[Rfam]
RNA sequence: CCAACCGAAACAUGUCGAAGCAUGACCUCUGCCGAGGUAGUUCGUGAGGUAGAGCGACCGAUUAGGGGAACCAACUCCGAGAGGAGUUGGUCCCCUUGUCAAACUCCAAACUUACGAACGCCGUCGACGCAGGGAAUCCGGUGUGCGGGGUAAGCCUGUGCACCAGGAGGGGAACAACCCAGAGUCGGGUUAAGGUCCCAAAGUGUAGACUAAGUGCAAUCUGAAGGUGGUCUCAAGCCCUAAACAGCCGGGAGGUGAGCUUAGAAGCAGCUACCCUCUAAGAAAAGCGUAACAGCUUACCGGCCGAGGUUUGAGGCGCCCAAAAUGAUCGGGGCUCAAGUCUACCACCGAGACCUGACCAUGCGGAUAACACCGCAAUUGAGUAGGUUGGCAUUCCGUUUGGAUGGAAGCUCGGGCGAGAGCUCGCGUGGACCGAACGGGAACGAAAAU
Number, nucleotide and partner (000 for none) at each position: 001c391002c390003a389004a388005c387006c386007g000008a000009a000010a000011c024012a023013u022014g021015u020016c000017g000018a000019a000020g015021c014022a013023u012024g011025a000026c000027c134028u133029c132030u131031g130032c129033c000034g000035a000036g122037g121038u120039a000040g119041u118042u117043c116044g115045u114046g113047a112048g000049g000050u000051a000052g107053a105054g104055c000056g000057a000058c000059c000060g100061a099062u098063u000064a096065g095066g094067g093068g092069a091070a000071c000072c000073a088074a087075c086076u085077c084078c083079g000080a000081g000082a000083g078084g077085a076086g075087u074088u073089g000090g000091u069092c068093c067094c066095c065096u064097u000098g062099u061100c060101a000102a000103a000104c054105u053106c000107c052108a000109a000110a000111c000112u047113u046114a045115c044116g043117a042118a041119c040120g038121c037122c036123g000124u000125c000126g000127a000128c000129g032130c031131a030132g029133g028134g027135a000136a000137u000138c000139c000140g164141g163142u162143g161144u160145g159146c158147g157148g156149g000150g000151u000152a000153a000154g000155c000156c148157u147158g146159u145160g144161c143162a142163c141164c140165a000166g000167g000168a000169g180170g179171g178172g000173a000174a000175c000176a000177a000178c171179c170180c169181a000182g000183a000184g359185u358186c357187g356188g355189g354190u353191u000192a000193a000194g349195g348196u347197c000198c000199c000200a000201a000202a000203g346204u000205g345206u344207a343208g342209a341210c340211u000212a000213a000214g000215u000216g000217c000218a000219a000220u000221c000222u000223g000224a000225a000226g320227g319228u318229g000230g317231u316232c315233u314234c313235a312236a311237g310238c309239c308240c000241u000242a000243a000244a000245c000246a000247g304248c303249c302250g301251g300252g000253a277254g276255g275256u000257g000258a272259g271260c270261u000262u000263a000264g000265a000266a000267g000268c000269a000270g260271c259272u258273a000274c000275c255276c254277u253278c282279u000280a000281a000282g278283a298284a000285a000286a000287g296288c295289g000290u000291a000292a000293c000294a000295g288296c287297u000298u283299a000300c251301c250302g249303g248304c247305c000306g000307a000308g239309g238310u237311u236312u235313g234314a233315g232316g231317c230318g228319c227320c226321c000322a000323a000324a000325a000326u000327g000328a000329u000330c000331g000332g000333g000334g000335c000336u000337c000338a000339a000340g210341u209342c208343u207344a206345c205346c203347a196348c195349c194350g000351a000352g000353a190354c189355c188356u187357g186358a185359c184360c381361a380362u377363g376364c375365g374366g373367a000368u000369a000370a000371c000372a000373c366374c365375g364376c363377a362378a000379u000380u361381g360382a000383g000384u000385a000386g006387g005388u004389u003390g002391g001392c445393a000394u442395u441396c440397c439398g438399u437400u436401u435402g434403g433404a000405u000406g000407g000408a000409a000410g429411c428412u000413c426414g425415g424416g423417c422418g000419a000420g000421a000422g417423c416424u415425c414426g413427c000428g411429u410430g000431g000432a000433c403434c402435g401436a400437a399438c398439g397440g396441g395442a394443a000444c000445g392446a000447a000448a000449a000450u000

Record summary:
Shown here is a 450-nucleotide part of an RNA from Halorussus gelatinilyticus, a member of the family "Archaeal large subunit ribosomal RNA". It scores 2837 bits against the family's covariance model. The organism belongs to Halorussus, within Archaea.